[Rfam]
RNA: 6S / SsrS RNA
RNA sequence: AACUCCCUGGCAUGUUCGCCAGUCGGCGAUGACCCUCUCCCGAUAAGCAACACCAUGGAGGCUACACGUGGUGCCGGUGUGCAUGUCCGCCUGACGGAAAGCCUUAAGGUACUCUGUAGUCGCCACCUUGAACUCUCGGGUUCAAGGGCCUACGCUGGCAGCGGCAUGCUGGGGAGCCA
Numbered sequence: 001a002a003c004u005c006c007c008u009g010g011c012a013u014g015u016u017c018g019c020c021a022g023u024c025g026g027c028g029a030u031g032a033c034c035c036u037c038u039c040c041c042g043a044u045a046a047g048c049a050a051c052a053c054c055a056u057g058g059a060g061g062c063u064a065c066a067c068g069u070g071g072u073g074c075c076g077g078u079g080u081g082c083a084u085g086u087c088c089g090c091c092u093g094a095c096g097g098a099a100a101g102c103c104u105u106a107a108g109g110u111a112c113u114c115u116g117u118a119g120u121c122g123c124c125a126c127c128u129u130g131a132a133c134u135c136u137c138g139g140g141u142u143c144a145a146g147g148g149c150c151u152a153c154g155c156u157g158g159c160a161g162c163g164g165c166a167u168g169c170u171g172g173g174g175a176g177c178c179a
Stems, first nucleotide, its partner, number of pairs: 003176013017163003031149001033147002036144001040140002057124002061120006070113006081102002086098004